[Rfam]
RNA sequence: GUGGUAACAUUCACAUUAAGAAUGGUAUGGGUAUAAUUCUAUUUCCAGAAGAAUGUAUCCCACACCGAUAAAGGUGAUAUCGCGUAAGCGAUUUUAGCGCUUCCGGUUUCGUUGAGGGAAGUGUGAACUGAAAUAAUGUGACAAUGAACGAAGGAGAGACCCAUGCAGGUCAGCAGAAGGCAGUUCUUUAAG
Number, nucleotide and partner (000 for none) at each position: 001g000002u030003g000004g028005u027006a026007a000008c024009a023010u022011u021012c020013a000014c000015a000016u000017u000018a000019a000020g012021a011022a010023u009024g008025g000026u006027a005028u004029g000030g002031g000032u049033a000034u047035a000036a000037u000038u000039c000040u000041a000042u000043u000044u000045c000046c000047a034048g000049a032050a000051g059052a058053a000054u000055g000056u000057a000058u052059c051060c000061c076062a075063c074064a000065c000066c000067g000068a000069u000070a000071a000072a000073g000074g063075u062076g061077a000078u000079a092080u091081c090082g089083c088084g000085u000086a000087a000088g083089c082090g081091a080092u079093u000094u000095u000096a000097g124098c123099g122100c121101u000102u119103c118104c117105g000106g000107u000108u000109u000110c000111g000112u000113u000114g000115a000116g000117g104118g103119a102120a000121g100122u099123g098124u097125g186126a185127a184128c183129u182130g181131a000132a000133a000134u000135a000136a000137u000138g000139u172140g171141a170142c169143a000144a000145u000146g000147a000148a000149c000150g000151a000152a000153g162154g161155a000156g000157a000158g000159a000160c000161c154162c153163a000164u000165g000166c000167a000168g000169g142170u141171c140172a139173g000174c000175a000176g000177a000178a000179g000180g000181c130182a129183g128184u127185u126186c125187u000188u000189u000190a000191a000192g000